[Rfam]
RNA sequence: UUAGGCGUAAUGGUGCUCUCUUCACUCCUGUUGUAAAAGGAGGUGAUGGUAGGCCACGGCUGCUAGUUCAUGAAUACCCCUGGCUGCGCAGGAUUAAAGUAAUAAAGUUUGCGCAGGCUAAGGGUUUGCAUGACCUGGGAGACGUGGUUACCUUCUUCUUUUUUAUAUUGGAGUGAAGGGAGCUCUGUUGUCU
Numbered sequence: 001u002u003a004g005g006c007g008u009a010a011u012g013g014u015g016c017u018c019u020c021u022u023c024a025c026u027c028c029u030g031u032u033g034u035a036a037a038a039g040g041a042g043g044u045g046a047u048g049g050u051a052g053g054c055c056a057c058g059g060c061u062g063c064u065a066g067u068u069c070a071u072g073a074a075u076a077c078c079c080c081u082g083g084c085u086g087c088g089c090a091g092g093a094u095u096a097a098a099g100u101a102a103u104a105a106a107g108u109u110u111g112c113g114c115a116g117g118c119u120a121a122g123g124g125u126u127u128g129c130a131u132g133a134c135c136u137g138g139g140a141g142a143c144g145u146g147g148u149u150a151c152c153u154u155c156u157u158c159u160u161u162u163u164u165a166u167a168u169u170g171g172a173g174u175g176a177a178g179g180g181a182g183c184u185c186u187g188u189u190g191u192c193u
Stems, first nucleotide, its partner, number of pairs: 013185001015183006023175006036162001060141002063138003069132004077124001
RNA: MIR159 microRNA precursor family